[Rfam]
RNA sequence: UGCUCCGGUGCCGCGGGCUGUCUCCCCCAAGAAACACGAGGGUGAAAGGACCCCCACCAAACCCCACCCCUCCUCCCGCUCCUCCCGCCCGCGACGGCAAACUCACCCACUCGGGUGAACAUCACCAACUCGGCUGGAUUCGGGCACGGUUGCCUGCCCUACGCUCGGCGCAACACAACCGCAGACAUUCAACGGCCCUCGCCGGGACGGCAAUCCCAGUGCGAGGGCCUGACCACCAAGGAAGUAGCACCUUCCCG
Numbered sequence: 001u002g003c004u005c006c007g008g009u010g011c012c013g014c015g016g017g018c019u020g021u022c023u024c025c026c027c028c029a030a031g032a033a034a035c036a037c038g039a040g041g042g043u044g045a046a047a048g049g050a051c052c053c054c055c056a057c058c059a060a061a062c063c064c065c066a067c068c069c070c071u072c073c074u075c076c077c078g079c080u081c082c083u084c085c086c087g088c089c090c091g092c093g094a095c096g097g098c099a100a101a102c103u104c105a106c107c108c109a110c111u112c113g114g115g116u117g118a119a120c121a122u123c124a125c126c127a128a129c130u131c132g133g134c135u136g137g138a139u140u141c142g143g144g145c146a147c148g149g150u151u152g153c154c155u156g157c158c159c160u161a162c163g164c165u166c167g168g169c170g171c172a173a174c175a176c177a178a179c180c181g182c183a184g185a186c187a188u189u190c191a192a193c194g195g196c197c198c199u200c201g202c203c204g205g206g207a208c209g210g211c212a213a214u215c216c217c218a219g220u221g222c223g224a225g226g227g228c229c230u231g232a233c234c235a236c237c238a239a240g241g242a243a244g245u246a247g248c249a250c251c252u253u254c255c256c257g
Stems, first nucleotide, its partner, number of pairs: 007237004016089003020086001103118006133169005194229005200223003204217004240255005
Dot-bracket structure: ......((((.....(((.(.................................................................)))).............((((((....))))))..............(((((...........................)))))........................(((((.(((.((((......))))...))).)))))....))))..(((((......)))))..
A member of the RNA family "Streptomyces sRNA 4677" from Streptomyces regalis, 257 nucleotides long. It is annotated as a small RNA. NCBI's taxonomy places the organism under Bacteria, Actinomycetota, Actinomycetes, Kitasatosporales, Streptomyces. The base pairs follow the family's consensus structure.